[Rfam]
RNA sequence: GCGGGAGAGGUUCAUAGCGCACACCCUCUAUAAAAAACUAUGGAUUA
Numbered sequence: 001g002c003g004g005g006a007g008a009g010g011u012u013c014a015u016a017g018c019g020c021a022c023a024c025c026c027u028c029u030a031u032a033a034a035a036a037a038c039u040a041u042g043g044a045u046u047a
Base pairs, nucleotide, nucleotide: 006029007028008027009026010025015040016039
Annotation
This 47-nucleotide sequence from Planococcus lenghuensis belongs to the Rfam family "PreQ1 (pre queuosine) riboswitch aptamer". NCBI's taxonomy places the organism under Bacteria, Bacillati, Bacillota, Bacilli, Planococcus. Rfam 15.1 lists 873 matches to the family in 692 species. Gene Ontology term of the family: queuosine biosynthetic process. The match comes from Rfam's covariance-model search (40 bits).